[Rfam]
RNA: tRNA
Organism: Salinisphaera shabanensis
RNA sequence: GGGCCCGUAGCUCAGUUGGAUAGAGCGUGCGGCUACGAACCGCAAGGUCGGGAGUUCGAAUCUUCCCGGGCCCG
Numbered sequence: 001g002g003g004c005c006c007g008u009a010g011c012u013c014a015g016u017u018g019g020a021u022a023g024a025g026c027g028u029g030c031g032g033c034u035a036c037g038a039a040c041c042g043c044a045a046g047g048u049c050g051g052g053a054g055u056u057c058g059a060a061u062c063u064u065c066c067c068g069g070g071c072c073c074g
Stems, first nucleotide, its partner, number of pairs: 001073007010026004028044005050066005